[Rfam]
RNA sequence: AAUUACACUGAGUGGCCAGAUUAUUAUGAUCUCUCAAUACAUAAUAAUCUGGCCACUCAGUUUGUAU
Numbered sequence: 001a002a003u004u005a006c007a008c009u010g011a012g013u014g015g016c017c018a019g020a021u022u023a024u025u026a027u028g029a030u031c032u033c034u035c036a037a038u039a040c041a042u043a044a045u046a047a048u049c050u051g052g053c054c055a056c057u058c059a060g061u062u063u064g065u066a067u
Base pairs, nucleotide, nucleotide: 004064005063007061008060009059010058011057012056013055014054015053016052017051019049020048021047022046023045024044025043026042027041028040
Overview: This 67-nucleotide RNA sequence from Cnephaeus nilssonii belongs to the Rfam family "mir-9256 microRNA precursor family". Rfam links the family to the GO terms RISC complex and miRNA-mediated post-transcriptional gene silencing. The family's consensus secondary structure was predicted with RNAalifold. A search with the family's covariance model found it, with a score of 80 bits.